Rfam assigns this 92-nucleotide sequence from Cajanus cajan to the family "Small nucleolar RNA snoR109". Its family is annotated with nucleolus and RNA processing in the Gene Ontology. NCBI's taxonomy places the organism under Eukaryota, Viridiplantae, Spermatophyta, Fabales, Cajanus.
[Rfam]
RNA sequence: CGGCUGUAGCUAUAGCAAUUCCGUUUGAGAAGCUAUCUGGCCGGUUGUUGUGAUCUCUGUCAACUAAUCUGCUUACCGAGCUUUUCACAUUU
Numbered sequence: 001c002g003g004c005u006g007u008a009g010c011u012a013u014a015g016c017a018a019u020u021c022c023g024u025u026u027g028a029g030a031a032g033c034u035a036u037c038u039g040g041c042c043g044g045u046u047g048u049u050g051u052g053a054u055c056u057c058u059g060u061c062a063a064c065u066a067a068u069c070u071g072c073u074u075a076c077c078g079a080g081c082u083u084u085u086c087a088c089a090u091u092u
Base pairs, nucleotide, nucleotide: 027086028085029084030083031082032081033080034079039073040072041071043069044068045067046066047064048063049062050061
Rfam classes the family as an H/ACA-box small nucleolar RNA. The family's consensus secondary structure was predicted with WAR. A reference for the family is Marker et al. (2002), "Experimental RNomics: identification of 140 candidates for small non-messenger RNAs in the plant Arabidopsis thaliana", Curr Biol.